[Rfam]
RNA sequence: UUAGCAUGAUGAUGAUGAUCGUAAUUAACAUUGUCCGAUUCAGUUAUGAAGGAUUAAUUACCUCCUACUCAUUCUGA
Numbered sequence: 001u002u003a004g005c006a007u008g009a010u011g012a013u014g015a016u017g018a019u020c021g022u023a024a025u026u027a028a029c030a031u032u033g034u035c036c037g038a039u040u041c042a043g044u045u046a047u048g049a050a051g052g053a054u055u056a057a058u059u060a061c062c063u064c065c066u067a068c069u070c071a072u073u074c075u076g077a
Stems, first nucleotide, its partner, number of pairs: 006072004034053003

This 77-nucleotide sequence belongs to the Rfam family "Small nucleolar RNA Z105". The family's RNA type in Rfam is C/D-box small nucleolar RNA. Rfam links the family to the GO terms nucleolus and RNA processing.